A member of the RNA family "mir-3117 microRNA precursor family" from Homo sapiens, 78 nucleotides long.
The source organism's lineage runs through Eukaryota, Gnathostomata, Boreoeutheria, Simiiformes and Homo.
Its family is annotated with RISC complex and miRNA-mediated post-transcriptional gene silencing in the Gene Ontology.
RNA sequence: CCCUAAAGGGCCAGACACUAUACGAGUCAUAUAAGGGAAGGCAUUAUAGGACUCAUAUAGUGCCAGGUGUUUUGUGGG
Numbered sequence: 001c002c003c004u005a006a007a008g009g010g011c012c013a014g015a016c017a018c019u020a021u022a023c024g025a026g027u028c029a030u031a032u033a034a035g036g037g038a039a040g041g042c043a044u045u046a047u048a049g050g051a052c053u054c055a056u057a058u059a060g061u062g063c064c065a066g067g068u069g070u071u072u073u074g075u076g077g078g
Base pairs, nucleotide, nucleotide: 001078002077003076004074005073006072007071008070010068011067012066014064016062017061018060019059020058021057022056024054025053026052027051028050030048031047032046033045034044036042